[Rfam]
Source information:
Rfam assigns this 119-nucleotide RNA from Triticum aestivum to the family "Small nucleolar RNA snoR104". On this family, see Marker et al., Curr Biol 2002: "Experimental RNomics: identification of 140 candidates for small non-messenger RNAs in the plant Arabidopsis thaliana".

RNA sequence: AUGAUGGCAUUCAAAGGACAACAUGUCUACCUAAUACAAUAUUCUUAAAGUUAAGAUUUCAUUUCCUGCUUGUGGCAUUGUUAGGAAGUUCUACAAGUCUCAAAUGAGAAAACAUCCAU
Numbered sequence: 001a002u003g004a005u006g007g008c009a010u011u012c013a014a015a016g017g018a019c020a021a022c023a024u025g026u027c028u029a030c031c032u033a034a035u036a037c038a039a040u041a042u043u044c045u046u047a048a049a050g051u052u053a054a055g056a057u058u059u060c061a062u063u064u065c066c067u068g069c070u071u072g073u074g075g076c077a078u079u080g081u082u083a084g085g086a087a088g089u090u091c092u093a094c095a096a097g098u099c100u101c102a103a104a105u106g107a108g109a110a111a112a113c114a115u116c117c118a119u
Stems, first nucleotide, its partner, number of pairs: 001032001003030001006028001007026004057112003068098008077089003